[Rfam]
RNA: Clostridiales-1 RNA
Nucleotides: 168
Base pairs, nucleotide, nucleotide: 001168002167003166004165005164006163007162010068011067012066013065017061018060019059020058021057022056024052026050027049030046031044032043033042034041035040072124073123074122075121076120077119078118079117082114083113084112085111090107091106092105093104094103095102096101127158128157129156130155131154132153133152138148139147140146141145
Number, partner (000 for none) and nucleotide at each position: 001168u002167g003166a004165u005164g006163c007162c008000a009000g010068g011067g012066u013065c014000a015000a016000a017061a018060g019059g020058u021057c022056u023000a024052a025000g026050c027049c028000c029000a030046c031044a032043u033042g034041a035040g036000c037000u038000u039000g040035c041034u042033c043032a044031u045000a046030g047000g048000u049027g050026g051000a052024u053000g054000a055000a056022a057021g058020a059019c060018c061017u062000u063000a064000g065013g066012a067011c068010c069000c070000g071000c072124u073123c074122c075121g076120a077119u078118a079117u080000g081000a082114g083113c084112a085111u086000a087000a088000a089000a090107g091106u092105g093104g094103g095102a096101u097000g098000a099000u100000a101096a102095u103094c104093c105092c106091a107090c108000g109000a110000u111085a112084u113083g114082c115000g116000a117079a118078u119077a120076u121075u122074g123073g124072g125000u126000a127158g128157g129156a130155u131154u132153g133152u134000g135000g136000g137000a138148g139147u140146g141145c142000g143000u144000a145141g146140c147139a148138c149000g150000g151000a152133g153132c154131a155130a156129u157128c158127c159000g160000u161000a162007g163006g164005c165004a166003u167002c168001a